Rfam assigns this 124-nucleotide sequence from Ochotona princeps to the family "Small nucleolar RNA SNORA28". The organism belongs to Ochotona, within Eukaryota. Its Rfam clan is "SNORA28 clan". Rfam links the family to the GO terms nucleolus and RNA processing. The sequence is in the family's curated seed alignment. The family's RNA type in Rfam is H/ACA-box small nucleolar RNA. The family's consensus secondary structure was predicted with RNAfold. About the family: ACA28 is a member of the H/ACA class of snoRNA that guide the sites of modification of uridines to pseudouridines.
[Rfam]
RNA sequence: AAGCAACACUCUGUGGCAGACUGUCAAUCAUCUGACACAAUUUGCGCUUGCUAUAGCAAGGAAGUCUAACCUAUUCCGGUGUGCACUCUGCUGUGAGGCCGACUGUUAUUCAGCCUUAAACAGU
Numbered sequence: 001a002a003g004c005a006a007c008a009c010u011c012u013g014u015g016g017c018a019g020a021c022u023g024u025c026a027a028u029c030a031u032c033u034g035a036c037a038c039a040a041u042u043u044g045c046g047c048u049u050g051c052u053a054u055a056g057c058a059a060g061g062a063a064g065u066c067u068a069a070c071c072u073a074u075u076c077c078g079g080u081g082u083g084c085a086c087u088c089u090g091c092u093g094u095g096a097g098g099c100c101g102a103c104u105g106u107u108a109u110u111c112a113g114c115c116u117u118a119a120a121c122a123g124u
Stems, first nucleotide, its partner, number of pairs: 009046001011044001012039004017034004062117003066113002073109002077105004086097003